msiK RNA: a 60-nucleotide RNA from Streptomyces filipinensis. The source organism's lineage runs through Bacteria, Actinomycetota, Kitasatosporales, Streptomycetaceae and Streptomyces. The family's RNA type in Rfam is cis-regulatory element.

RNA sequence: AUCAACCACCUUCCUACAACGGAUCGUCCGGCACGUUCCUGCCGGUAGAAGGGGGCCCAU
Numbered sequence: 001a002u003c004a005a006c007c008a009c010c011u012u013c014c015u016a017c018a019a020c021g022g023a024u025c026g027u028c029c030g031g032c033a034c035g036u037u038c039c040u041g042c043c044g045g046u047a048g049a050a051g052g053g054g055g056c057c058c059a060u
Stems, first nucleotide, its partner, number of pairs: 010052003014048003028045006